[Rfam]
RNA sequence: CUUUGAUAUUAUAGUUAAGAUAGUCCUUCUUAGCCAUCUUUAGCUCCCGGUUUUUAAGGACUAUCUUUAAAUGCUUC
Numbered sequence: 001c002u003u004u005g006a007u008a009u010u011a012u013a014g015u016u017a018a019g020a021u022a023g024u025c026c027u028u029c030u031u032a033g034c035c036a037u038c039u040u041u042a043g044c045u046c047c048c049g050g051u052u053u054u055u056a057a058g059g060a061c062u063a064u065c066u067u068u069a070a071a072u073g074c075u076u077c
Base pairs, nucleotide, nucleotide: 019065020064021063022062023061024060025059026058027057032052033051034050035049
Annotation
The family of this 77-nucleotide sequence from Pelagibacterales bacterium SAG-MED10 is "rhtB sRNA". A search with the family's covariance model found it, with a score of 80 bits. Lineage of the source: Bacteria > Pseudomonadati > Pseudomonadota > Alphaproteobacteria > Candidatus Pelagibacterales. By type it is a small RNA. The base pairs follow the family's consensus structure, which is taken from published work. On this family, see Meyer et al., BMC Genomics 2009: "Identification of candidate structured RNAs in the marine organism 'Candidatus Pelagibacter ubique'".